[Rfam]
RNA sequence: UUGUAUAAAGUGUGCUUUUUAUAUAAAUAAAUAUUUAGCUUAUAAGAAAAUUUUUUAUUAAUUAAGAAGUAAAGGGGCUAAAGAUGGAUAAAAUGGUGGCUCUGAUUGGACUUGAACCAACGGCCACUACCA
Numbered sequence: 001u002u003g004u005a006u007a008a009a010g011u012g013u014g015c016u017u018u019u020u021a022u023a024u025a026a027a028u029a030a031a032u033a034u035u036u037a038g039c040u041u042a043u044a045a046g047a048a049a050a051u052u053u054u055u056u057a058u059u060a061a062u063u064a065a066g067a068a069g070u071a072a073a074g075g076g077g078c079u080a081a082a083g084a085u086g087g088a089u090a091a092a093a094u095g096g097u098g099g100c101u102c103u104g105a106u107u108g109g110a111c112u113u114g115a116a117c118c119a120a121c122g123g124c125c126a127c128u129a130c131c132a
Stems, first nucleotide, its partner, number of pairs: 011033003017029001019027002050062003094129006103122002106120004
Bacterial antisense RNA HPnc0260: a 132-nucleotide sequence from Helicobacter valdiviensis. On this family, see Sharma et al., Nature 2010: "The primary transcriptome of the major human pathogen Helicobacter pylori".